Overview: A member of the RNA family "Purine riboswitch aptamer" from Effusibacillus dendaii, 102 nucleotides long. The family's consensus secondary structure is taken from published work.

[Rfam]
RNA sequence: AUCGGCACAAUCAAACAUACUCGUAUAUCUUCGGGAAUACGGCCCGAAAGUUUCUACCCGGUUACCGUAAAUAACCGGACUACGAGCUGAAAGUGAAUCUAG
Number, nucleotide and partner (000 for none) at each position: 001a000002u000003c000004g000005g000006c000007a000008c000009a000010a000011u000012c000013a000014a000015a000016c000017a000018u000019a000020c086021u085022c084023g083024u082025a081026u000027a000028u000029c000030u048031u047032c046033g045034g044035g043036a000037a000038u000039a000040c000041g000042g000043c035044c034045c033046g032047a031048a030049a000050g000051u000052u000053u000054c000055u000056a000057c000058c078059c077060g076061g075062u074063u073064a072065c000066c000067g000068u000069a000070a000071a000072u064073a063074a062075c061076c060077g059078g058079a000080c000081u025082a024083c023084g022085a021086g020087c000088u000089g000090a000091a000092a000093g000094u000095g000096a000097a000098u000099c000100u000101a000102g000